Lysine riboswitch aptamer: a 196-nucleotide RNA sequence from Vallitalea guaymasensis. The base pairs follow the family's consensus structure, which is taken from published work. It scores 94 bits against the family's covariance model. From the family's description: Riboswitches are metabolite binding domains within certain messenger RNAs that serve as precision sensors for their corresponding targets.
[Rfam]
RNA sequence: AACAUGAAUAGAGGCGCGAAGGAGAGGGUAAUCUUUAAUUGUUAAGGAGAAGAACCUCCAAUAUUAAAGAUGAAUGGUUCCUUUGCCGAAAGAGUAUGUUGGUUCUUAAAUAUAUUCUUGGUGAUAAUGACAAUACAUUAUCACUGCCAUAAGGGAUGAUUAGAUAUCCUAAGUUUUAUGGAGAGCUAUUUAUGUA
Number, nucleotide and partner (000 for none) at each position: 001a000002a000003c000004a000005u000006g191007a190008a189009u188010a187011g186012a000013g000014g000015c000016g086017c085018g084019a083020a082021g081022g080023a079024g078025a000026g000027g000028g000029u000030a000031a071032u070033c069034u068035u067036u066037a065038a064039u000040u000041g000042u000043u000044a000045a000046g000047g000048a000049g000050a000051a000052g000053a000054a000055c000056c000057u000058c000059c000060a000061a000062u000063a000064u038065u037066a036067a035068a034069g033070a032071u031072g000073a000074a000075u000076g000077g000078u024079u023080c022081c021082u020083u019084u018085g017086c016087c000088g000089a000090a119091a118092g117093a116094g115095u114096a113097u112098g111099u110100u109101g000102g000103u000104u000105c000106u000107u000108a000109a100110a099111u098112a097113u096114a095115u094116u093117c092118u091119u090120g145121g144122u143123g142124a141125u140126a139127a138128u137129g136130a000131c000132a000133a000134u000135a000136c129137a128138u127139u126140a125141u124142c123143a122144c121145u120146g000147c181148c180149a179150u178151a177152a176153g175154g000155g000156a000157u000158g000159a000160u000161u000162a000163g000164a000165u000166a000167u000168c000169c000170u000171a000172a000173g000174u000175u153176u152177u151178a150179u149180g148181g147182a000183g000184a000185g000186c011187u010188a009189u008190u007191u006192a000193u000194g000195u000196a000